[Rfam]
A member of the RNA family "MIR162_1 microRNA precursor family" from Hibiscus syriacus, 109 nucleotides long. Lineage of the source: Eukaryota > Viridiplantae > Streptophyta > Pentapetalae > Hibiscus. Gene Ontology terms of the family: RISC complex and miRNA-mediated post-transcriptional gene silencing. Its Rfam clan is "MIR167 microRNA precursor clan". The literature on the family includes a 2002 paper in Genes Dev by Reinhart et al., "MicroRNAs in plants". The base pairs follow the family's consensus structure, which was predicted with RNAalifold. Rfam 15.1 lists 270 matches to the family in 158 species.
RNA sequence: GGUAAAGACAUUGGAGGCAGUGAUUCAUCGAUCUCUUCCUUGGAUUUUUUUGUGAGAUAACACAUAUACAUGAAUCGAUCGAUAAACCUCUGCAUCCAGUGCCUUAACU
Numbered sequence: 001g002g003u004a005a006a007g008a009c010a011u012u013g014g015a016g017g018c019a020g021u022g023a024u025u026c027a028u029c030g031a032u033c034u035c036u037u038c039c040u041u042g043g044a045u046u047u048u049u050u051u052g053u054g055a056g057a058u059a060a061c062a063c064a065u066a067u068a069c070a071u072g073a074a075u076c077g078a079u080c081g082a083u084a085a086a087c088c089u090c091u092g093c094a095u096c097c098a099g100u101g102c103c104u105u106a107a108c109u
Base pairs, nucleotide, nucleotide: 013097014096015095018092019091020090022088024086025085027083028082029081030080031079032078033077036074037073038072
Dot-bracket structure: ............(((..(((.(.((.(((((((..(((.................................)))..))))))).)).).)))..)))............